Description:
The record is a 117-nucleotide sequence from Sinorhizobium terangae, which matches "Alphaproteobacterial ar14" in Rfam.
RNA sequence: AAUCAUCGACAGGGCCUCCUCCUCCCGGCCCUGUCGUGGGAUCGGCAACCAUCCUCCUCCCAGUUGCCGAUCAGAUUCGGAAGCCCGGCGCCCCUCCCCCCGCGCCGGGCUUUCUUU
Dot-bracket structure: ......(((((((((............)))))))))...((((((((((.............))))))))))........(((((((((((..........))))))))))).....
Numbered sequence: 001a002a003u004c005a006u007c008g009a010c011a012g013g014g015c016c017u018c019c020u021c022c023u024c025c026c027g028g029c030c031c032u033g034u035c036g037u038g039g040g041a042u043c044g045g046c047a048a049c050c051a052u053c054c055u056c057c058u059c060c061c062a063g064u065u066g067c068c069g070a071u072c073a074g075a076u077u078c079g080g081a082a083g084c085c086c087g088g089c090g091c092c093c094c095u096c097c098c099c100c101c102g103c104g105c106c107g108g109g110c111u112u113u114c115u116u117u
Stems, first nucleotide, its partner, number of pairs: 007036009040072010081112011
NCBI's taxonomy places the organism under Bacteria, Pseudomonadota, Hyphomicrobiales, Rhizobiaceae, Sinorhizobium. For this family Rfam cites "A survey of sRNA families in alpha-proteobacteria" (del Val et al., RNA Biol, 2012). The family's RNA type in Rfam is small RNA. The match comes from Rfam's covariance-model search (103 bits).